Small nucleolar RNA R21: an 81-nucleotide sequence from Durio zibethinus. The family's RNA type in Rfam is C/D-box small nucleolar RNA. On this family, see Barneche et al., J Mol Biol 2001: "Identification of 66 box C/D snoRNAs in Arabidopsis thaliana: extensive gene duplications generated multiple isoforms predicting new ribosomal RNA 2'-O-methylation sites". Lineage of the source: Eukaryota > Streptophyta > eudicotyledons > Gunneridae > Durio. Its family is annotated with RNA processing and nucleolus in the Gene Ontology. Rfam 15.1 lists 472 matches to the family in 146 species.
[Rfam]
RNA sequence: CAUCCCAAUGAUGAAUUUUUAUUUGAUUUUAAAAGUUGAUAGGCCUGAUUUGCAUUGAAGAAUAGAUAAUUUUGAGGGAUG
Dot-bracket structure: ((((((.....................................................................))))))